This 21-nucleotide sequence from Nyctibius grandis belongs to the Rfam family "Pseudoknot of upstream pseudoknot domain (UPD) of the 3'UTR". The base pairs follow the family's consensus structure, which is taken from published work. Taxonomically the source falls in Nyctibius (Eukaryota, Craniata, Amniota, Aves). The family's RNA type in Rfam is cis-regulatory element. Gene Ontology terms of the family: regulation of viral transcription and positive regulation of viral translation.

[Rfam]
RNA sequence: CGUGGUGCAGACGAUACUGCA
Numbered sequence: 001c002g003u004g005g006u007g008c009a010g011a012c013g014a015u016a017c018u019g020c021a
Stems, first nucleotide, its partner, number of pairs: 001013003006021005